[Rfam]
RNA sequence: GGGUGUGCGGCAGAGUCGCCGGGCAGGUUGAUGCGCAGGUCGGGCCGCCGCG
Numbered sequence: 001g002g003g004u005g006u007g008c009g010g011c012a013g014a015g016u017c018g019c020c021g022g023g024c025a026g027g028u029u030g031a032u033g034c035g036c037a038g039g040u041c042g043g044g045c046c047g048c049c050g051c052g
Base pairs, nucleotide, nucleotide: 005024006023008021009020010019011018034052035051036050038049039048040047

Rfam assigns this 52-nucleotide sequence from Sinimarinibacterium sp. NLF-5-8 to the family "nhaA-I RNA". Pairs were carried over by alignment from the consensus structure, which is taken from published work. Acidobacteria, Alphaproteobacteria, Betaproteobacteria and Gammaproteobacteria, Verrucomicrobia, cand. division NC10. The organism belongs to Sinimarinibacterium, within Bacteria. Rfam classes the family as a riboswitch.